[Rfam]
RNA sequence: CUCUCAUGAAGAGUAGCAGAGGGACUGGCCCGUUGAAGCUCGGCAACCAACCAUAUGUUUAAGUGUGGAAAGGUGCUAAAUCCUGCAAAACGAUACCGUUUUGAAAAAUGAGAG
Numbered sequence: 001c002u003c004u005c006a007u008g009a010a011g012a013g014u015a016g017c018a019g020a021g022g023g024a025c026u027g028g029c030c031c032g033u034u035g036a037a038g039c040u041c042g043g044c045a046a047c048c049a050a051c052c053a054u055a056u057g058u059u060u061a062a063g064u065g066u067g068g069a070a071a072g073g074u075g076c077u078a079a080a081u082c083c084u085g086c087a088a089a090a091c092g093a094u095a096c097c098g099u100u101u102u103g104a105a106a107a108a109u110g111a112g113a114g
Base pairs, nucleotide, nucleotide: 001114002113003112004111005110006109007108013041015040016039017038021031022030023029025085027083028082042077043076044075045074047073048072051068052067053066054065055064081106086103087102088101089100090099091098
Rfam assigns this 114-nucleotide RNA sequence from Psychrobacillus soli to the family "SAM riboswitch aptamer (S box leader)". A reference for the family is Rodionov et al. (2004), "Comparative genomics of the methionine metabolism in Gram-positive bacteria: a variety of regulatory systems", Nucleic Acids Res. The organism belongs to Psychrobacillus, within Bacteria.